[Rfam]
RNA sequence: UGUCCGGUUGCGGGAGAGAGCAGAGAAAUCUGCCGCCGAAGGGGAAAACGCCCGAAAUCUCUCAGGCAAAUGAACCGUCGCCGGAAA
Number, nucleotide and partner (000 for none) at each position: 001u000002g000003u000004c000005c000006g082007g081008u080009u000010g078011c077012g076013g075014g000015a000016g000017a000018g000019a000020g033021c032022a031023g030024a000025g000026a000027a000028a000029u000030c023031u022032g021033c020034c000035g067036c066037c065038g063039a062040a000041g000042g061043g060044g059045a000046a000047a000048a000049c054050g000051c000052c000053c000054g049055a000056a000057a000058u000059c044060u043061c042062u039063c038064a000065g037066g036067c035068a000069a000070a000071u000072g000073a000074a000075c013076c012077g011078u010079c000080g008081c007082c006083g000084g000085a000086a000087a000
Rfam assigns this 87-nucleotide sequence from Limoniibacter endophyticus to the family "Glycine riboswitch aptamer". Lineage of the source: Bacteria > Pseudomonadota > Alphaproteobacteria > Hyphomicrobiales > Limoniibacter. The pairing is the family consensus, mapped onto this sequence. The match comes from Rfam's covariance-model search (62 bits).